Shown here is a 143-nucleotide RNA from Papaver somniferum, a member of the family "small nucleolar RNA snoR134".
Rfam links the family to the GO terms nucleolus and RNA processing.
It scores 57 bits against the family's covariance model.
It is annotated as an H/ACA-box small nucleolar RNA.
Taxonomically the source falls in Papaver (Eukaryota, Streptophyta, Embryophyta, Mesangiospermae).
[Rfam]
RNA sequence: GAGCAUCUUGCACCCCGAAGGCUUAUCUGAAGUAUGCGAUGAUGAAAAAGCCCCAAUGCUCGGCUAAAUUGUGUCGUAUAUAGUGUUGCAAAUUUGCUUAGUAUCUUCAACAGCUUAUUUGUGUCAAAAUAACGGCCACAUUU
Numbered sequence: 001g002a003g004c005a006u007c008u009u010g011c012a013c014c015c016c017g018a019a020g021g022c023u024u025a026u027c028u029g030a031a032g033u034a035u036g037c038g039a040u041g042a043u044g045a046a047a048a049a050g051c052c053c054c055a056a057u058g059c060u061c062g063g064c065u066a067a068a069u070u071g072u073g074u075c076g077u078a079u080a081u082a083g084u085g086u087u088g089c090a091a092a093u094u095u096g097c098u099u100a101g102u103a104u105c106u107u108c109a110a111c112a113g114c115u116u117a118u119u120u121g122u123g124u125c126a127a128a129a130u131a132a133c134g135g136c137c138a139c140a141u142u143u
Stems, first nucleotide, its partner, number of pairs: 003064002006062001010059002017053001020052004024047001026045002073136005079131002084126002087123006096114003